[Rfam]
RNA sequence: UCAGCAAGCCGGAUGGCCGCUCCGCCAGUAUUGCGUAUCAGGCGGGGAGGAAAGUCCGGGCUCCACGGAAACACGGUGCCGGAUAACGUCCGGCGGGGGCGACCCCAGGGAAAGUGCCACAGAAAGCAAACCGCCCGCCCUCGCUUCGGCCAGGCGGGUAAGGGUGAAAGGGUGCGGUAAGAGCGCACCGCGUCCUUGGCAACAGGGAUGGCAGGGCAAACCCCACCGGGAGCAAGACCAAAUAGGGGUCGCGCGGACGAGCAAUCGUCCAAGUCUGUUUCCAGACAAGCGACCCGGGUUGGUUGCACGAGGCGCUUCGCAAGAUGCGCCCCAGAUGAAUGGCCAUCGUCUCGCAUUGCGAGACACAGAACCCGGCUUACAGGCUUGGUGACAUG
Numbered sequence: 001u002c003a004g005c006a007a008g009c010c011g012g013a014u015g016g017c018c019g020c021u022c023c024g025c026c027a028g029u030a031u032u033g034c035g036u037a038u039c040a041g042g043c044g045g046g047g048a049g050g051a052a053a054g055u056c057c058g059g060g061c062u063c064c065a066c067g068g069a070a071a072c073a074c075g076g077u078g079c080c081g082g083a084u085a086a087c088g089u090c091c092g093g094c095g096g097g098g099g100c101g102a103c104c105c106c107a108g109g110g111a112a113a114g115u116g117c118c119a120c121a122g123a124a125a126g127c128a129a130a131c132c133g134c135c136c137g138c139c140c141u142c143g144c145u146u147c148g149g150c151c152a153g154g155c156g157g158g159u160a161a162g163g164g165u166g167a168a169a170g171g172g173u174g175c176g177g178u179a180a181g182a183g184c185g186c187a188c189c190g191c192g193u194c195c196u197u198g199g200c201a202a203c204a205g206g207g208a209u210g211g212c213a214g215g216g217c218a219a220a221c222c223c224c225a226c227c228g229g230g231a232g233c234a235a236g237a238c239c240a241a242a243u244a245g246g247g248g249u250c251g252c253g254c255g256g257a258c259g260a261g262c263a264a265u266c267g268u269c270c271a272a273g274u275c276u277g278u279u280u281c282c283a284g285a286c287a288a289g290c291g292a293c294c295c296g297g298g299u300u301g302g303u304u305g306c307a308c309g310a311g312g313c314g315c316u317u318c319g320c321a322a323g324a325u326g327c328g329c330c331c332c333a334g335a336u337g338a339a340u341g342g343c344c345a346u347c348g349u350c351u352c353g354c355a356u357u358g359c360g361a362g363a364c365a366c367a368g369a370a371c372c373c374g375g376c377u378u379a380c381a382g383g384c385u386u387g388g389u390g391a392c393a394u395g
Base pairs, nucleotide, nucleotide: 001391002390003389005387006386007385008384009383010382011380012347013346014345015344016343017342018341020047021046022045023044024043025042026041028039052378053377054376056375057374058373059372060371061232062231063230064229070280071279074228075227076226077225078224079093080092081091082090083089094108095106096105097104098103109223110222114221115220116217117216118215131163132162133159134158135157136156137155138154139153171189172188173187174186175185176184190212191210192209193208194207195206196205197204198203236304237303238302239301246295247294248293249292250291251290273286274285275284276283311330312329313328314327315326317324318323
Rfam assigns this 395-nucleotide RNA from Methyloceanibacter superfactus to the family "Bacterial RNase P class A".
Its family is annotated with ribonuclease P activity, dimeric ribonuclease P complex and tRNA processing in the Gene Ontology.
The match comes from Rfam's covariance-model search (315 bits).
The family's RNA type in Rfam is ribozyme.